[Rfam]
RNA sequence: GUACGUUGUUAAGCACAGCAAUUAUUGAGGUUUGGUUCACAGCCAAACCUUUU
Numbered sequence: 001g002u003a004c005g006u007u008g009u010u011a012a013g014c015a016c017a018g019c020a021a022u023u024a025u026u027g028a029g030g031u032u033u034g035g036u037u038c039a040c041a042g043c044c045a046a047a048c049c050u051u052u053u
Stems, first nucleotide, its partner, number of pairs: 005014002027051010
Shown here is a 53-nucleotide RNA sequence from Nostoc punctiforme, a member of the family "Cyanobacteria heterocyst sRNA". Rfam 15.1 lists 36 matches to the family in 36 species. Taxonomically the source falls in Nostoc punctiforme (Bacteria, Cyanobacteriota, Cyanophyceae, Nostocales). Pairs were carried over by alignment from the consensus structure. The family's RNA type in Rfam is small RNA.